[Rfam]
RNA sequence: UCUAGAACUCAAUAUAUGGGCUGAACACUGAACAAUGUCUGGGCUACAUGACAGAUUCUGACUUCUCUUUUGUUGCUACAAGUUGAACUUAAAAACGGUCGUUUUGAAUCUUGGACUCUUCACAAAAGUUUUAGGUCUAUGUCUUAACUUUCCAUC
Numbered sequence: 001u002c003u004a005g006a007a008c009u010c011a012a013u014a015u016a017u018g019g020g021c022u023g024a025a026c027a028c029u030g031a032a033c034a035a036u037g038u039c040u041g042g043g044c045u046a047c048a049u050g051a052c053a054g055a056u057u058c059u060g061a062c063u064u065c066u067c068u069u070u071u072g073u074u075g076c077u078a079c080a081a082g083u084u085g086a087a088c089u090u091a092a093a094a095a096c097g098g099u100c101g102u103u104u105u106g107a108a109u110c111u112u113g114g115a116c117u118c119u120u121c122a123c124a125a126a127a128g129u130u131u132u133a134g135g136u137c138u139a140u141g142u143c144u145u146a147a148c149u150u151u152c153c154a155u156c
Base pairs, nucleotide, nucleotide: 003154005152006151007150009146011145012144014142015141016140017139018138019137020136021134022133023132024131025130027129028128029127036122037121041119042118043117045115048112050110051109054105055104058101060099062098063097068092069091072088073087074086
The family of this 156-nucleotide sequence from Populus deltoides is "MIR2912 microRNA precursor family". It scores 131 bits against the family's covariance model. Rfam links the family to the GO terms miRNA-mediated post-transcriptional gene silencing and RISC complex. The family has 2 seed sequences and 15,051 matches in Rfam 15.1.